A member of the RNA family "tRNA" from Psychrosphaera ytuae, 73 nucleotides long. The organism belongs to Psychrosphaera, within Bacteria. Rfam links the family to the GO term triplet codon-amino acid adaptor activity. The family's consensus secondary structure is taken from published work.

[Rfam]
RNA sequence: GUCCCCUUAGUUCAACUGGAUAGAACAAGGGCCUCCUAAGCCUUAGAUACAGGUUCAAGUCCUGUAGGGGACG
Numbered sequence: 001g002u003c004c005c006c007u008u009a010g011u012u013c014a015a016c017u018g019g020a021u022a023g024a025a026c027a028a029g030g031g032c033c034u035c036c037u038a039a040g041c042c043u044u045a046g047a048u049a050c051a052g053g054u055u056c057a058a059g060u061c062c063u064g065u066a067g068g069g070g071a072c073g
Stems, first nucleotide, its partner, number of pairs: 001072007010026004028044005049065005

The match comes from Rfam's covariance-model search (66 bits).